[Rfam]
RNA sequence: GUUGGGAAAUGACGAGAACAUAUUCCAGAGGUUGUUUCUGAGGGUAGAUAAAUGCUACCUACCUGUUGAUUAUACCUUGCACGUCAGUCUGAUCCCAUA
Dot-bracket structure: ..(((((.....................................................................................)))))..
Numbered sequence: 001g002u003u004g005g006g007a008a009a010u011g012a013c014g015a016g017a018a019c020a021u022a023u024u025c026c027a028g029a030g031g032u033u034g035u036u037u038c039u040g041a042g043g044g045u046a047g048a049u050a051a052a053u054g055c056u057a058c059c060u061a062c063c064u065g066u067u068g069a070u071u072a073u074a075c076c077u078u079g080c081a082c083g084u085c086a087g088u089c090u091g092a093u094c095c096c097a098u099a
Stems, first nucleotide, its partner, number of pairs: 003097005
Rfam assigns this 99-nucleotide RNA from Dichanthelium oligosanthes to the family "Small nucleolar RNA Z122".
A search with the family's covariance model found it, with a score of 52 bits.
Rfam links the family to the GO terms RNA processing and nucleolus.
By type it is a C/D-box small nucleolar RNA.
The family has 23 seed sequences and 822 matches in Rfam 15.1.